[Rfam]
RNA sequence: UGCCGAGGCCUCCUCAUUGUGCAUGCUGUGUGUUUCUCUGAGUGUACCGCACAGCGCCUGCAAUGUGGAGGCUGAGGCG
Numbered sequence: 001u002g003c004c005g006a007g008g009c010c011u012c013c014u015c016a017u018u019g020u021g022c023a024u025g026c027u028g029u030g031u032g033u034u035u036c037u038c039u040g041a042g043u044g045u046a047c048c049g050c051a052c053a054g055c056g057c058c059u060g061c062a063a064u065g066u067g068g069a070g071g072c073u074g075a076g077g078c079g
Base pairs, nucleotide, nucleotide: 012068013067015065016064017063018062019061020060021059024056026054027053028052029051030050031049
Dot-bracket structure: ...........((.(((((((..(.((((((.................)))))).)..))))))).))...........

This 79-nucleotide RNA sequence from Parambassis ranga belongs to the Rfam family "mir-460 microRNA precursor family".
The match comes from Rfam's covariance-model search (58 bits).
Rfam 15.1 lists 1,029 matches to the family in 498 species.
Gene Ontology terms of the family: RISC complex and miRNA-mediated post-transcriptional gene silencing.
A reference for the family is Xu et al. (2006), "Identification of microRNAs from different tissues of chicken embryo and adult chicken", FEBS Lett.
The organism belongs to Parambassis, within Eukaryota.